[Rfam]
Background
Rfam assigns this 94-nucleotide RNA from Rattus norvegicus to the family "mir-337 microRNA precursor family". A reference for the family is Kim et al. (2004), "Identification of many microRNAs that copurify with polyribosomes in mammalian neurons", Proc Natl Acad Sci U S A.
RNA sequence: GUAGUGAGAAGUUGGGGGGUGGGAACGGCGUCAUGCAGGAGUUGAUUGCACAGCCAUUCAGCUCCUAUAUGAUGCCUUUCUUCACCCCCUUCAA
Numbered sequence: 001g002u003a004g005u006g007a008g009a010a011g012u013u014g015g016g017g018g019g020u021g022g023g024a025a026c027g028g029c030g031u032c033a034u035g036c037a038g039g040a041g042u043u044g045a046u047u048g049c050a051c052a053g054c055c056a057u058u059c060a061g062c063u064c065c066u067a068u069a070u071g072a073u074g075c076c077u078u079u080c081u082u083c084a085c086c087c088c089c090u091u092c093a094a
Base pairs, nucleotide, nucleotide: 014090015089016088017087018086019085020084021083022082023080024079025078027076028075029074031072032071033070034069035068037066038065039064040063041062042061043060044059045057046056048055